[Rfam]
The record is a 55-nucleotide RNA sequence from Coregonus sp. 'balchen', which matches "UnaL2 LINE 3' element" in Rfam.
RNA sequence: UGCACUCACUAACUGUAACUCGCUCUGGAUAAGAGCAUCUGCUAAAUGACUAAAA
Numbered sequence: 001u002g003c004a005c006u007c008a009c010u011a012a013c014u015g016u017a018a019c020u021c022g023c024u025c026u027g028g029a030u031a032a033g034a035g036c037a038u039c040u041g042c043u044a045a046a047u048g049a050c051u052a053a054a055a
Base pairs, nucleotide, nucleotide: 014044015042016041017040022036023035024034025033026032
For this family Rfam cites "Solution structure of an RNA stem-loop derived from the 3' conserved region of eel LINE UnaL2" (Baba et al., RNA, 2004). The match comes from Rfam's covariance-model search (58 bits).